[Rfam]
RNA sequence: UCUACUCUUAUGAUGAAGCAUUUACGGAUGUAAAGCUGUCUACGGACUUCUUUGCCGAGAGCGCAAAACCGUGUGGAUCUUUCCGUUGCCUUCCUUCUGACCUUUGUCU
Numbered sequence: 001u002c003u004a005c006u007c008u009u010a011u012g013a014u015g016a017a018g019c020a021u022u023u024a025c026g027g028a029u030g031u032a033a034a035g036c037u038g039u040c041u042a043c044g045g046a047c048u049u050c051u052u053u054g055c056c057g058a059g060a061g062c063g064c065a066a067a068a069c070c071g072u073g074u075g076g077a078u079c080u081u082u083c084c085g086u087u088g089c090c091u092u093c094c095u096u097c098u099g100a101c102c103u104u105u106g107u108c109u
Base pairs, nucleotide, nucleotide: 004107005106025085026084027083028082